[Rfam]
Annotation: The family of this 96-nucleotide RNA from Ananas comosus is "Small nucleolar RNA Z162". The match comes from Rfam's covariance-model search (56 bits).

RNA sequence: UCGGGCACAAUGAGGAAUCAUGUUCUCUCUAUAAAAUAUUGAGGUCUUAAGGCCGGUGACUGCACAUCUUUAAGUCCUUUUCAUUCUGAGUGCCUC
Numbered sequence: 001u002c003g004g005g006c007a008c009a010a011u012g013a014g015g016a017a018u019c020a021u022g023u024u025c026u027c028u029c030u031a032u033a034a035a036a037u038a039u040u041g042a043g044g045u046c047u048u049a050a051g052g053c054c055g056g057u058g059a060c061u062g063c064a065c066a067u068c069u070u071u072a073a074g075u076c077c078u079u080u081u082c083a084u085u086c087u088g089a090g091u092g093c094c095u096c
Stems, first nucleotide, its partner, number of pairs: 004094005010084005044053003
Dot-bracket structure: ...(((((.(((((.............................(((....)))..........................))))).....)))))..